[Rfam]
RNA sequence: CGGCCAGGACGACCUUGCCGGCGUUUUUCAUGCCGGGGGACGACCCCA
Numbered sequence: 001c002g003g004c005c006a007g008g009a010c011g012a013c014c015u016u017g018c019c020g021g022c023g024u025u026u027u028u029c030a031u032g033c034c035g036g037g038g039g040a041c042g043a044c045c046c047c048a
Base pairs, nucleotide, nucleotide: 001020002019003018004017006015007014008013036047037046038045039044
Shown here is a 48-nucleotide RNA sequence from Piscinibacter sp. HJYY11, a member of the family "Guanidine-II riboswitch aptamer (mini-ykkC)". The source organism's lineage runs through Bacteria, Pseudomonadota, Betaproteobacteria, Burkholderiales and Piscinibacter. The family's consensus secondary structure is taken from published work. For this family Rfam cites "Identification of 22 candidate structured RNAs in bacteria using the CMfinder comparative genomics pipeline" (Weinberg et al., Nucleic Acids Res, 2007).